[Rfam]
RNA sequence: GGGCUUGUGAUGAUUCAGGUCCGAAAGGAUCUUAGCGGAUUUCUGUGAGGCGAUUCUGUCGUCGUUGAUCGCUUAAUGUUGUUACACACACUGAAGCCU
Numbered sequence: 001g002g003g004c005u006u007g008u009g010a011u012g013a014u015u016c017a018g019g020u021c022c023g024a025a026a027g028g029a030u031c032u033u034a035g036c037g038g039a040u041u042u043c044u045g046u047g048a049g050g051c052g053a054u055u056c057u058g059u060c061g062u063c064g065u066u067g068a069u070c071g072c073u074u075a076a077u078g079u080u081g082u083u084a085c086a087c088a089c090a091c092u093g094a095a096g097c098c099u
Stems, first nucleotide, its partner, number of pairs: 001099005
The record is a 99-nucleotide RNA sequence, which matches "Small nucleolar RNA R11/Z151" in Rfam. Rfam classes the family as a C/D-box small nucleolar RNA. It is one of the family's seed sequences.